Shown here is a 66-nucleotide RNA from Erpetoichthys calabaricus, a member of the family "MAT2A 3'UTR stem loop A".
The source organism's lineage runs through Eukaryota, Metazoa, Eumetazoa, Chordata and Erpetoichthys.
On this family, see Parker et al., Genome Res 2011: "New families of human regulatory RNA structures identified by comparative analysis of vertebrate genomes".
RNA sequence: GCUUUUUUUCCUCGGGCCUGCUGGUGUAUAUUACAGAGAAGCCUUCCAGGCCCAAGGGGAAAAGGC
Numbered sequence: 001g002c003u004u005u006u007u008u009u010c011c012u013c014g015g016g017c018c019u020g021c022u023g024g025u026g027u028a029u030a031u032u033a034c035a036g037a038g039a040a041g042c043c044u045u046c047c048a049g050g051c052c053c054a055a056g057g058g059g060a061a062a063a064g065g066c
Stems, first nucleotide, its partner, number of pairs: 001066004008060004014053003020046001023043003026034002
It is annotated as a cis-regulatory element.